[Rfam]
RNA: Glycine riboswitch aptamer
RNA sequence: UGCCGGUCUGCGGGAGAGAGCAACGUUCGUUUGCCGCCGAAGGGGAAAUCGCCCGAAAUCUCUCAGGCAAAAGAACCGUUGACGGGUA
Dot-bracket structure: .....(((.((((......((((.......)))).(((((..(((...((....))...))))).))).......)))).))).....